[Rfam]
RNA sequence: CAACUCUGGUUUCCCUUCAGAACGCAUAAAUCUUUCGCCUUUUACUAAAGAUUUCCGUGGAGGGGAGCAACUCAAUGAGUCUAUAAAUAUAUUUCUCUCAGGCCUAACGGCCUUA
Dot-bracket structure: ..((((..(((((((((((........((((((((...........))))))))...)))))))))))........))))...................(((((....)))))..
Rfam assigns this 115-nucleotide RNA sequence from Armadillidium nasatum to the family "U5 spliceosomal RNA". Lineage of the source: Eukaryota > Metazoa > Ecdysozoa > Pancrustacea > Armadillidium. It is annotated as a spliceosomal small nuclear RNA.